[Rfam]
RNA sequence: AAAUAAAUUAAAUAACAGUACAGUAUAACCUCAUUAAUAUGGUAUGAGGGUCUCUACCAGGAACCGUAAAAUCCUGAUUACGAAGAAAAAGAUGUAUUU
Numbered sequence: 001a002a003a004u005a006a007a008u009u010a011a012a013u014a015a016c017a018g019u020a021c022a023g024u025a026u027a028a029c030c031u032c033a034u035u036a037a038u039a040u041g042g043u044a045u046g047a048g049g050g051u052c053u054c055u056a057c058c059a060g061g062a063a064c065c066g067u068a069a070a071a072u073c074c075u076g077a078u079u080a081c082g083a084a085g086a087a088a089a090a091g092a093u094g095u096a097u098u099u
Stems, first nucleotide, its partner, number of pairs: 019084001021082001023081003029049006058076005
Rfam assigns this 99-nucleotide sequence from Gottfriedia endophytica to the family "Purine riboswitch aptamer". The base pairs follow the family's consensus structure, which is taken from published work. Its family is annotated with purine nucleobase biosynthetic process in the Gene Ontology.